The record is a 79-nucleotide RNA sequence from Pospiviroid fusituberis, which matches "Pospiviroid RY motif stem loop" in Rfam. A reference for the family is Gozmanova et al. (2003), "Characterization of the RNA motif responsible for the specific interaction of potato spindle tuber viroid RNA (PSTVd) and the tomato protein Virp1", Nucleic Acids Res. This family consists of several Pospiviroid sequences which are related to the potato spindle tuber viroid (PSTVd) RY motif stem-loop. The source organism's lineage runs through Viruses, Pospiviroidae, Pospiviroid and Pospiviroid fusituberis. Rfam's curators put it in the seed alignment. Rfam links the family to the GO term protein binding.

RNA sequence: AGCCGACAGGAGUAAUUCCCGCCGAAACAGGGUUUUCACCCUUCCUUUCUUCGGGUGUCCUUCCUCGCGCCCGCAGGAC
Numbered sequence: 001a002g003c004c005g006a007c008a009g010g011a012g013u014a015a016u017u018c019c020c021g022c023c024g025a026a027a028c029a030g031g032g033u034u035u036u037c038a039c040c041c042u043u044c045c046u047u048u049c050u051u052c053g054g055g056u057g058u059c060c061u062u063c064c065u066c067g068c069g070c071c072c073g074c075a076g077g078a079c
Stems, first nucleotide, its partner, number of pairs: 002070002004067003008061004018055004024049004029042005